[Rfam]
RNA: mir-3492 microRNA precursor family
RNA sequence: AGCCUUCUGUAUCUGUGCUGAGAUUUCUUCACACACUAAACCACAAGGGCUGAUGAGACUCCCAAUCAUUAGUUCAGGUG
Numbered sequence: 001a002g003c004c005u006u007c008u009g010u011a012u013c014u015g016u017g018c019u020g021a022g023a024u025u026u027c028u029u030c031a032c033a034c035a036c037u038a039a040a041c042c043a044c045a046a047g048g049g050c051u052g053a054u055g056a057g058a059c060u061c062c063c064a065a066u067c068a069u070u071a072g073u074u075c076a077g078g079u080g
Stems, first nucleotide, its partner, number of pairs: 002079004008072001011069002016064002020061003024058004029053002